[Rfam]
RNA sequence: CGCGGCCCCUCAUGUGGUGUCAUCCUGUUGAACUCCCCCAGGACCGGAAGGUAGCAAGGGUAGGCGGGCUCUGGCAGGUGCAUGAGGGGUCUUCACG
Numbered sequence: 001c002g003c004g005g006c007c008c009c010u011c012a013u014g015u016g017g018u019g020u021c022a023u024c025c026u027g028u029u030g031a032a033c034u035c036c037c038c039c040a041g042g043a044c045c046g047g048a049a050g051g052u053a054g055c056a057a058g059g060g061u062a063g064g065c066g067g068g069c070u071c072u073g074g075c076a077g078g079u080g081c082a083u084g085a086g087g088g089g090u091c092u093u094c095a096c097g
Stems, first nucleotide, its partner, number of pairs: 004091011015078001018076005024068006035060003043052003

Notes:
This 97-nucleotide RNA sequence from Arthrobacter subterraneus belongs to the Rfam family "Bacterial small signal recognition particle RNA". NCBI's taxonomy places the organism under Bacteria, Bacillati, Actinomycetes, Micrococcaceae, Arthrobacter. The signal recognition particle (SRP) is a universally conserved ribonucleoprotein involved in the co-translational targeting of proteins to membranes.